[Rfam]
Rfam assigns this 289-nucleotide RNA sequence from Cryphonectria parasitica to the family "A. fumigatus sRNA Afu_309". The base pairs follow the family's consensus structure, which was predicted with WAR. A reference for the family is Jochl et al. (2008), "Small ncRNA transcriptome analysis from Aspergillus fumigatus suggests a novel mechanism for regulation of protein synthesis", Nucleic Acids Res. A search with the family's covariance model found it, with a score of 144 bits. Rfam 15.1 lists 663 matches to the family in 646 species.

RNA sequence: CACACACAUACACAUAUGGAUCUGUGCCCAGCGAUCCUCUGUUCGCUCUGGCGAAUUCAGGGUUGAUUGCUGCGGCAGUUCGAUUUUGUUCAAGGAGCCAUCAAAUCCCCAUGAUGUCAAUCUUCCAAUCGACAGGUCCUAGAUCAUUCGGGGUUGUUGGGGGAGUGCAGGGUUCGCUUCGGCUUGAGCCUUGCCCUCCCCUCUUCUCUAGAAGACGCCAUAUUCCACACCGUUCGCCGAGAUCGUCGAUCUAUGAGGCUGGGGAAAACCAUGGCAUUUGCCUACAUAC
Numbered sequence: 001c002a003c004a005c006a007c008a009u010a011c012a013c014a015u016a017u018g019g020a021u022c023u024g025u026g027c028c029c030a031g032c033g034a035u036c037c038u039c040u041g042u043u044c045g046c047u048c049u050g051g052c053g054a055a056u057u058c059a060g061g062g063u064u065g066a067u068u069g070c071u072g073c074g075g076c077a078g079u080u081c082g083a084u085u086u087u088g089u090u091c092a093a094g095g096a097g098c099c100a101u102c103a104a105a106u107c108c109c110c111a112u113g114a115u116g117u118c119a120a121u122c123u124u125c126c127a128a129u130c131g132a133c134a135g136g137u138c139c140u141a142g143a144u145c146a147u148u149c150g151g152g153g154u155u156g157u158u159g160g161g162g163g164a165g166u167g168c169a170g171g172g173u174u175c176g177c178u179u180c181g182g183c184u185u186g187a188g189c190c191u192u193g194c195c196c197u198c199c200c201c202u203c204u205u206c207u208c209u210a211g212a213a214g215a216c217g218c219c220a221u222a223u224u225c226c227a228c229a230c231c232g233u234u235c236g237c238c239g240a241g242a243u244c245g246u247c248g249a250u251c252u253a254u255g256a257g258g259c260u261g262g263g264g265a266a267a268a269c270c271a272u273g274g275c276a277u278u279u280g281c282c283u284a285c286a287u288a289c
Stems, first nucleotide, its partner, number of pairs: 018139008026076003029072003033068004037062005043055001044053003086131001088129003094118002097115001099113001150209003156205001159202003167194009176183002214282001216280001217275005230264002233261001236259003241251004
Dot-bracket structure: .................((((((((((((((.(((((((((.((((....))).)..)))))..)))).))).))).........(.(((...((.(.(.............).).))........))).)))))))))..........(((...(..(((.....(((((((((((....))..))))))))).....)))..).)))....(.((((((........((.(..(((..((((...)))).....))).).))......)))))....).).......